Rfam assigns this 88-nucleotide RNA sequence from Muraenolepis orangiensis to the family "mir-142 microRNA precursor family".
A search with the family's covariance model found it, with a score of 95 bits.
The source organism's lineage runs through Eukaryota, Osteoglossocephalai, Acanthomorphata, Muraenolepidoidei and Muraenolepis.
The literature on the family includes a 2002 paper in Curr Biol by Lagos-Quintana et al., "Identification of tissue-specific microRNAs from mouse".
RNA sequence: CAGUGCUGUCAUCCAUAAAGUAGAAAGCACUACUAAAAACUCCUCGUCCACCCUGUAGUGUUUCCUACUUUAUGGAUGAGUGUACUGU
Numbered sequence: 001c002a003g004u005g006c007u008g009u010c011a012u013c014c015a016u017a018a019a020g021u022a023g024a025a026a027g028c029a030c031u032a033c034u035a036a037a038a039a040c041u042c043c044u045c046g047u048c049c050a051c052c053c054u055g056u057a058g059u060g061u062u063u064c065c066u067a068c069u070u071u072a073u074g075g076a077u078g079a080g081u082g083u084a085c086u087g088u
Stems, first nucleotide, its partner, number of pairs: 014074010026062008
Dot-bracket structure: .............((((((((((..((((((((.....................))))))))..))))))))))..............